[Rfam]
RNA sequence: UUAACUCAAAUUUGUAUGGAGUUGAAACGUUUGCUUAUGUUUGUCGCUAGGGGUGCUGCUCCAACUGGAUAUAAGUUUGAGUUA
Numbered sequence: 001u002u003a004a005c006u007c008a009a010a011u012u013u014g015u016a017u018g019g020a021g022u023u024g025a026a027a028c029g030u031u032u033g034c035u036u037a038u039g040u041u042u043g044u045c046g047c048u049a050g051g052g053g054u055g056c057u058g059c060u061c062c063a064a065c066u067g068g069a070u071a072u073a074a075g076u077u078u079g080a081g082u083u084a
Base pairs, nucleotide, nucleotide: 008078009077010076011075012074013073014072015071016070020066021065022064023063024062026060028058029057034052035051036050039047040046